Shown here is an 89-nucleotide RNA sequence from Hafnia alvei, a member of the family "TrxA 5' UTR thermometer".

RNA sequence: UCGGUCUAGUAGGUUAAGAUUAUACCAAUAAAGGCAGACUUAAUCCUGUGGAGUAGAACAUGAGCGAUAAAAUUGUUCACCUGAGUGAC
Numbered sequence: 001u002c003g004g005u006c007u008a009g010u011a012g013g014u015u016a017a018g019a020u021u022a023u024a025c026c027a028a029u030a031a032a033g034g035c036a037g038a039c040u041u042a043a044u045c046c047u048g049u050g051g052a053g054u055a056g057a058a059c060a061u062g063a064g065c066g067a068u069a070a071a072a073u074u075g076u077u078c079a080c081c082u083g084a085g086u087g088a089c
Base pairs, nucleotide, nucleotide: 009068010067012065014063015062016061020056021055022054023053025051026050027049032047033046034045073088074087075086076085077084078083
Description
The pairing is the family consensus, mapped onto this sequence. Involved in protection against oxidative stress. By type it is an RNA thermoregulator. Rfam links the family to the GO terms response to temperature stimulus and regulation of translation. The source organism's lineage runs through Bacteria, Pseudomonadati, Pseudomonadota, Hafniaceae and Hafnia alvei.